[Rfam]
Purine riboswitch aptamer: a 98-nucleotide sequence from Spiroplasma gladiatoris. The match comes from Rfam's covariance-model search (58 bits). The source organism's lineage runs through Bacteria, Bacillati, Mycoplasmatota, Entomoplasmatales and Spiroplasma. A reference for the family is Mandal and Breaker (2004), "Adenine riboswitches and gene activation by disruption of a transcription terminator", Nat Struct Mol Biol.
RNA sequence: AUAUUUUUGUAAAUAUCAUUUUAUAUAUGUUCGUAAUAUGGUCGAACGUCUCUACAAAUAACCUUAAAUUAUUGUCUAUAAAGUGAGUCAUAUAGCAA
Numbered sequence: 001a002u003a004u005u006u007u008u009g010u011a012a013a014u015a016u017c018a019u020u021u022u023a024u025a026u027a028u029g030u031u032c033g034u035a036a037u038a039u040g041g042u043c044g045a046a047c048g049u050c051u052c053u054a055c056a057a058a059u060a061a062c063c064u065u066a067a068a069u070u071a072u073u074g075u076c077u078a079u080a081a082a083g084u085g086a087g088u089c090a091u092a093u094a095g096c097a098a
Stems, first nucleotide, its partner, number of pairs: 018084008029047005057073005